[Rfam]
RNA sequence: CUGGAGUGAUGAUUCUUAGCCAAAUCAGACAUUGAUGUGCUCCAGAGAUAUGCAUAUAUAUGUGUUUUGUUUUAAAACCCAUAUAUAUGCUAGUUGACACCUUCUGUAGAAGCGCAUCAAUGUGAUGAUAAAAUAGAGGAAUGGUAGCAAGCUGACCAGA
Dot-bracket structure: ((((.......................................................................................................................................................)))).

Overview:
small nucleolar RNA snoR127: a 160-nucleotide RNA from Apium graveolens. The literature on the family includes a 2009 paper in Nucleic Acids Res by Chen and Wu, "Mining small RNA sequencing data: a new approach to identify small nucleolar RNAs in Arabidopsis".